[Rfam]
RNA sequence: GGGAGUGCUGUAAACAUCCUUGACUGGAAGCUGUAGGGAGACUGAAGGGGCUUUCAGUCGGAUGUUUGCAGCGGUCGG
Numbered sequence: 001g002g003g004a005g006u007g008c009u010g011u012a013a014a015c016a017u018c019c020u021u022g023a024c025u026g027g028a029a030g031c032u033g034u035a036g037g038g039a040g041a042c043u044g045a046a047g048g049g050g051c052u053u054u055c056a057g058u059c060g061g062a063u064g065u066u067u068g069c070a071g072c073g074g075u076c077g078g
Stems, first nucleotide, its partner, number of pairs: 003076002006073001008071012023058010
mir-30 microRNA precursor family: a 78-nucleotide RNA from Acipenser ruthenus. A search with the family's covariance model found it, with a score of 68 bits. Rfam describes the family as follows. This family consists of the mammalian microRNA (miRNA) precursor mir-30a. Animal miRNAs are transcribed as ~70nt precursors and subsequently processed by the Dicer enzyme to give a ~22nt product. Rfam 15.1 lists 3,879 matches to the family in 647 species.